[Rfam]
RNA sequence: GGUUCGGGAGCGGCCGGUGGGACGGCACGCAGGAAUAGAACCGACCCCCUUCAUUCGUGAGCGGCACACAGCCGGGGCCCGACGGCUGCUGUG
Numbered sequence: 001g002g003u004u005c006g007g008g009a010g011c012g013g014c015c016g017g018u019g020g021g022a023c024g025g026c027a028c029g030c031a032g033g034a035a036u037a038g039a040a041c042c043g044a045c046c047c048c049c050u051u052c053a054u055u056c057g058u059g060a061g062c063g064g065c066a067c068a069c070a071g072c073c074g075g076g077g078c079c080c081g082a083c084g085g086c087u088g089c090u091g092u093g
Stems, first nucleotide, its partner, number of pairs: 001042005010030003013026004065093004070087005
Description: A member of the RNA family "Rhodo-rpoB RNA" from Actibacterium atlanticum, 93 nucleotides long. The family's RNA type in Rfam is cis-regulatory element. It scores 72 bits against the family's covariance model. Taxonomically the source falls in Actibacterium (Bacteria, Pseudomonadati, Rhodobacterales, Roseobacteraceae).